The family of this 366-nucleotide part of an RNA from Streptomonospora alba is "Bacterial large subunit ribosomal RNA".

RNA sequence: CGGGUGAUCCGUGGUUAAGGAACUCGGCAAAUUGUCCCCGUAACUUUGGGAGAAGGGGAGCCCUGUCCGGUGAUCAGGUUUUCCCUGUGAGCGGGGCGGGGUCGCAGAUACCAGGGGAAAGCGACUGUUUAUUAAAAACACAGGUCCGUGCGAAGUCGUAAGACGCUGUAUACGGACUGACGCCUGCCCGGUGCUGGAACGUUAAGAGGACCGGUUAGCGCCUUUGGGUGUGAAGCUGGGAAUCUAAGCGCCAGUAAACGGCGGUGGUAACUAUAACCAUCCUAAGGUAGCGAAAUUCCUUGUCGGGUAAGUUCCGACCUGCACGAAUGGCGUAACGACUUUCCCGCUGUCUCAACCGCGGGCCCG
Numbered sequence: 001c002g003g004g005u006g007a008u009c010c011g012u013g014g015u016u017a018a019g020g021a022a023c024u025c026g027g028c029a030a031a032u033u034g035u036c037c038c039c040g041u042a043a044c045u046u047u048g049g050g051a052g053a054a055g056g057g058g059a060g061c062c063c064u065g066u067c068c069g070g071u072g073a074u075c076a077g078g079u080u081u082u083c084c085c086u087g088u089g090a091g092c093g094g095g096g097c098g099g100g101g102u103c104g105c106a107g108a109u110a111c112c113a114g115g116g117g118a119a120a121g122c123g124a125c126u127g128u129u130u131a132u133u134a135a136a137a138a139c140a141c142a143g144g145u146c147c148g149u150g151c152g153a154a155g156u157c158g159u160a161a162g163a164c165g166c167u168g169u170a171u172a173c174g175g176a177c178u179g180a181c182g183c184c185u186g187c188c189c190g191g192u193g194c195u196g197g198a199a200c201g202u203u204a205a206g207a208g209g210a211c212c213g214g215u216u217a218g219c220g221c222c223u224u225u226g227g228g229u230g231u232g233a234a235g236c237u238g239g240g241a242a243u244c245u246a247a248g249c250g251c252c253a254g255u256a257a258a259c260g261g262c263g264g265u266g267g268u269a270a271c272u273a274u275a276a277c278c279a280u281c282c283u284a285a286g287g288u289a290g291c292g293a294a295a296u297u298c299c300u301u302g303u304c305g306g307g308u309a310a311g312u313u314c315c316g317a318c319c320u321g322c323a324c325g326a327a328u329g330g331c332g333u334a335a336c337g338a339c340u341u342u343c344c345c346g347c348u349g350u351c352u353c354a355a356c357c358g359c360g361g362g363c364c365c366g
Base pairs, nucleotide, nucleotide: 001366002365003364004363009361010360011359012358013357014356015355016354018352019351020350035059036058037057038056039055044049060102061101062100063099064098065097083096084093086091103107115345116344117343118342119341120340121339122337123336126140127139128138143178144177145176146175147174148173149172150171151168155164156163157162181332182331183330184329186262187261188260191259192258193255194254195253196252197251200250201249202248206244207243211239212238213237214236215235218231219230220229221228222227263281264280265279266278267277268276282286292319302318303317304316305315306314307313

For this family Rfam cites "Crystal structure of the ribosome at 5.5 A resolution" (Yusupov et al., Science, 2001).